[Rfam]
RNA sequence: GGGGCUGUUUUUGGAUUUGACAAAAUUAUCAACAAAGUAAAGUGCAUGCCGAGGAACGGUUUGCCUCGAUAAAAGCCGUAAAAAAAUAAUUGCAAAUAAUAAACAAAACUACGCUUUAGCAGCUUAAAAAACUGAAUAAAGCCCUUCCUUCUUAUCCUCCUUCUCUUAGGAUGAGAAAACAGGAAGGUCAGAAAAAGAGAAAAACGUGGAUAUCAAGCUUGACGAUAACACGAAGUAGUUUUUUCAAGCUAUAUACCUAAUAUGUGUUUUUCCAAAUUAGGUAAUGAAUUCAAUAAAGAAAAAACUAAGCAUGUAGGGCUUUAUUAGUAGAAAUUUUGGACGCGGGUUCGAAUCCCGCCAGCUCCAAAA
Number, nucleotide and partner (000 for none) at each position: 001g365002g364003g363004g362005c361006u360007g359008u000009u000010u000011u000012u000013g000014g000015a000016u000017u000018u000019g000020a000021c338022a337023a336024a335025a334026u333027u332028a000029u330030c000031a000032a000033c000034a000035a325036a324037g000038u000039a000040a321041a320042g319043u318044g000045c313046a312047u311048g310049c309050c068051g067052a066053g065054g064055a000056a079057c078058g077059g076060u075061u074062u000063g000064c054065c053066u052067c051068g050069a000070u000071a000072a000073a000074a061075g060076c059077c058078g057079u056080a000081a000082a000083a000084a000085a000086a000087u000088a000089a000090u000091u000092g000093c000094a000095a000096a000097u000098a000099a000100u000101a000102a000103a000104c000105a000106a000107a000108a000109c000110u000111a000112c000113g000114c000115u140116u139117u138118a137119g000120c134121a133122g132123c000124u000125u000126a000127a000128a000129a000130a000131a000132c122133u121134g120135a000136a000137u118138a117139a116140a115141g000142c000143c187144c186145u185146u184147c183148c182149u000150u176151c175152u174153u173154a000155u000156c169157c000158u000159c000160c000161u200162u199163c000164u197165c000166u195167u000168a000169g156170g000171a000172u000173g153174a152175g151176a150177a000178a000179a000180c000181a000182g148183g147184a146185a145186g144187g143188u000189c000190a000191g000192a000193a000194a000195a166196a000197g164198a000199g162200a161201a000202a000203a000204a000205c232206g231207u230208g229209g000210a000211u000212a000213u000214c000215a000216a250217g249218c248219u247220u246221g245222a000223c000224g000225a000226u000227a000228a000229c208230a207231c206232g205233a000234a000235g000236u000237a000238g000239u000240u000241u000242u000243u000244u000245c221246a220247a219248g218249c217250u216251a000252u288253a000254u286255a285256c000257c000258u000259a000260a000261u000262a000263u274264g273265u000266g305267u304268u303269u302270u300271u299272c298273c264274a263275a000276a000277u000278u000279a000280g000281g000282u000283a000284a000285u255286g254287a000288a252289u000290u000291c000292a000293a000294u000295a000296a000297a000298g272299a271300a270301a000302a269303a268304a267305c266306u000307a000308a000309g049310c048311a047312u046313g045314u000315a000316g000317g000318g043319c042320u041321u040322u000323a000324u036325u035326a000327g000328u000329a000330g029331a000332a027333a026334u025335u024336u023337u022338g021339g000340a000341c000342g358343c357344g356345g355346g354347u000348u000349c000350g000351a000352a000353u000354c346355c345356c344357g343358c342359c007360a006361g005362c004363u003364c002365c001366a000367a000368a000369a000
Notes:
Shown here is a 369-nucleotide RNA sequence from Buchnera aphidicola, a member of the family "transfer-messenger RNA". Its family is annotated with RNA catabolic process in the Gene Ontology. NCBI's taxonomy places the organism under Bacteria, Erwiniaceae, Buchnera, Buchnera aphidicola, Buchnera aphidicola (Acyrthosiphon pisum). Bacterial tmRNA, also known as 10Sa RNA or SsrA, is named for its dual tRNA and mRNA-like properties. Its role is to liberate the mRNA from a stalled ribosome.